RNA sequence: UGCCAUAAGGGCUAGUUUUACCCUUAUGGCAUGAAUGUCGCAUGUCGCA
Numbered sequence: 001u002g003c004c005a006u007a008a009g010g011g012c013u014a015g016u017u018u019u020a021c022c023c024u025u026a027u028g029g030c031a032u033g034a035a036u037g038u039c040g041c042a043u044g045u046c047g048c049a
Base pairs, nucleotide, nucleotide: 001031002030003029004028005027006026007025008024009023010022011021